This 65-nucleotide RNA sequence from Streptomyces sp. NWU339 belongs to the Rfam family "L31-Actinobacteria ribosomal protein leader". Pairs were carried over by alignment from the consensus structure, which is taken from published work. Taxonomically the source falls in Streptomyces (Bacteria, Bacillati, Actinomycetota, Actinomycetes).
[Rfam]
RNA sequence: CCGGUUCCGGUUCGCCCCUCGUCGGUCUGGGAGAUCCUCAACGCCGCGAGUGGCGACCCGGCGCC
Numbered sequence: 001c002c003g004g005u006u007c008c009g010g011u012u013c014g015c016c017c018c019u020c021g022u023c024g025g026u027c028u029g030g031g032a033g034a035u036c037c038u039c040a041a042c043g044c045c046g047c048g049a050g051u052g053g054c055g056a057c058c059c060g061g062c063g064c065c
Base pairs, nucleotide, nucleotide: 003065004064005063007061008060009059010058013055014054015053016052018050019049020048021047
It scores 35 bits against the family's covariance model.